The family of this 85-nucleotide sequence from Dicentrarchus labrax is "Small nucleolar RNA SNORD35". On this family, see Nicoloso et al., J Mol Biol 1996: "Intron-encoded, antisense small nucleolar RNAs: the characterization of nine novel species points to their direct role as guides for the 2'-O-ribose methylation of rRNAs". Clan: SNORD35 clan. NCBI's taxonomy places the organism under Eukaryota, Chordata, Craniata, Gnathostomata, Dicentrarchus. Gene Ontology terms of the family: RNA processing and nucleolus. U35 is a C/D box snoRNA located in intron 6 of ribosomal protein L13A and intron 3 of ribosomal protein S11 in humans and at homologous positions in mouse and chicken ribosomal protein genes.

RNA sequence: UGCAAAUGAUGUCUUUCUCACGAUGGUCUUCCAAGCUCAAGAAGCUUUGACGAUAACUGCCUUUGGCAAAUGCUGAUGCAGCUUU
Numbered sequence: 001u002g003c004a005a006a007u008g009a010u011g012u013c014u015u016u017c018u019c020a021c022g023a024u025g026g027u028c029u030u031c032c033a034a035g036c037u038c039a040a041g042a043a044g045c046u047u048u049g050a051c052g053a054u055a056a057c058u059g060c061c062u063u064u065g066g067c068a069a070a071u072g073c074u075g076a077u078g079c080a081g082c083u084u085u
Stems, first nucleotide, its partner, number of pairs: 001080004